[Rfam]
RNA: Small nucleolar RNA snoR53Y
Organism: Hibiscus trionum
RNA sequence: GUUCCCAGUGAUGUUUGAACCAUGCUAAUGCUGAUUAUUCAGUGAUUAGAAAUUAUCAUUUGAUAUAUUCUGAGGGAACC
Numbered sequence: 001g002u003u004c005c006c007a008g009u010g011a012u013g014u015u016u017g018a019a020c021c022a023u024g025c026u027a028a029u030g031c032u033g034a035u036u037a038u039u040c041a042g043u044g045a046u047u048a049g050a051a052a053u054u055a056u057c058a059u060u061u062g063a064u065a066u067a068u069u070c071u072g073a074g075g076g077a078a079c080c
Stems, first nucleotide, its partner, number of pairs: 001079005